[Rfam]
RNA sequence: GCGGAUGGCUGGAUGACCGCGGGCCGGGCAACCGAUCCGAGGAAAGUCCGGACUCCAUGAAGUAAGGGUGCCGGGUAACGCCCGGCGGGGGAAACCCCAGGGAAAGCGCCACAGAGAAGAGUCUGCCUUGAUGACGCAAAGAAGGUUCGCCUUCGGCGCGGGCAAGGCGAUGGUGAAAAGGUGGGGUAAGAGCCCACCGCGGACCUGGCAACAGGGACGGCACGGCAAGCCCCACCCGGAGCAAUGCCGAAUAGGGGCCUCGCGCGGAAAGGUCCGGGGAACAGUCGCAAGACUGCCGGAGACCUCCGUAGGGACACUUCAGCCCGAGAUGGCCCGGGUUGGCAGCUUGACCGGCGCGGUAACGCGUCUGGCAGAGGAAUGGUCAUCCAAGAGGCGGGUUCGCAAGAAUUUGGCUCUGGACAGAAUCCGGCUUAUAGGCCAUCCGCGCAU
Dot-bracket structure: ((((((((((((((((((.((((.(((....))).))))....[[[.[[[[[((((.....[...((((((((((.....)))))(((((....)))).)((...(((((............(.((((((.(............................).))))))...).......((((((.......))))))(((..((((....))))..)).)..)))..)))))))))))))...((((......(((((..........................................................(((...].)))..))))).....))))......(.((((((....)))))).)..........)))))))......................................]]]]]]]].).))))))))))....